[Rfam]
RNA sequence: GGAGAGGUGGCCGAGUGGUCGAAGGCGGCACCCUGCUAAGGUGUUGUACCGGGCAACCGGUACCGCGGGUUCGAAUCCCGCCCUCUCCG
Numbered sequence: 001g002g003a004g005a006g007g008u009g010g011c012c013g014a015g016u017g018g019u020c021g022a023a024g025g026c027g028g029c030a031c032c033c034u035g036c037u038a039a040g041g042u043g044u045u046g047u048a049c050c051g052g053g054c055a056a057c058c059g060g061u062a063c064c065g066c067g068g069g070u071u072c073g074a075a076u077c078c079c080g081c082c083c084u085c086u087c088c089g
Stems, first nucleotide, its partner, number of pairs: 001088007010026003028044005065081005
RNA: tRNA
Organism: Marinithermus hydrothermalis